[Rfam]
About this RNA
This 347-nucleotide sequence from bacterium HR35 belongs to the Rfam family "Bacterial RNase P class A".
RNA sequence: AGGGAAGAACAGCCAAUCGCUGGGGUUUUAAAAUCCCAGAGGAAAGUCCGGACACCCAAAAAGGAAAGCUCCGAAAGGAGCUGGGGCGAAAGCCCCAAGAAGGAGGCACAGAGACCAUACUAUCCAGCUUUUUAGCUGGAAAAAGGUGAAAAGAAUGGGGGUGUCUAAAAAAUCAUUUUUAGGCUACCCCAUUAUCUUCUGAAGCAAUUCAGAAGAUUGUCUCCUUCUUUUCCGGGUGCAAGGCCGUGCCUGCUUUUAAGCAGGAGUGCCGCUUGUCCUCCUUAGUAAUAAGGAGGCCAGACAGAUGAUUGGCUAAAACAGAAUCCGGCUUACGUUCUUCCCUUUUU
Numbered sequence: 001a002g003g004g005a006a007g008a009a010c011a012g013c014c015a016a017u018c019g020c021u022g023g024g025g026u027u028u029u030a031a032a033a034u035c036c037c038a039g040a041g042g043a044a045a046g047u048c049c050g051g052a053c054a055c056c057c058a059a060a061a062a063g064g065a066a067a068g069c070u071c072c073g074a075a076a077g078g079a080g081c082u083g084g085g086g087c088g089a090a091a092g093c094c095c096c097a098a099g100a101a102g103g104a105g106g107c108a109c110a111g112a113g114a115c116c117a118u119a120c121u122a123u124c125c126a127g128c129u130u131u132u133u134a135g136c137u138g139g140a141a142a143a144a145g146g147u148g149a150a151a152a153g154a155a156u157g158g159g160g161g162u163g164u165c166u167a168a169a170a171a172a173u174c175a176u177u178u179u180u181a182g183g184c185u186a187c188c189c190c191a192u193u194a195u196c197u198u199c200u201g202a203a204g205c206a207a208u209u210c211a212g213a214a215g216a217u218u219g220u221c222u223c224c225u226u227c228u229u230u231u232c233c234g235g236g237u238g239c240a241a242g243g244c245c246g247u248g249c250c251u252g253c254u255u256u257u258a259a260g261c262a263g264g265a266g267u268g269c270c271g272c273u274u275g276u277c278c279u280c281c282u283u284a285g286u287a288a289u290a291a292g293g294a295g296g297c298c299a300g301a302c303a304g305a306u307g308a309u310u311g312g313c314u315a316a317a318a319c320a321g322a323a324u325c326c327g328g329c330u331u332a333c334g335u336u337c338u339u340c341c342c343u344u345u346u347u
Stems, first nucleotide, its partner, number of pairs: 001343010012313007020039008044331003048328005053238004063233005068081005082097001084095004098228002103226002105222002120145002123140007154193006196215008242270003252261003277296008
Rfam's curators write: Ribonuclease P (RNase P) is a ubiquitous endoribonuclease, found in archaea, bacteria and eukarya as well as chloroplasts and mitochondria. Pairs were carried over by alignment from the consensus structure, which is taken from published work. The match comes from Rfam's covariance-model search (166 bits).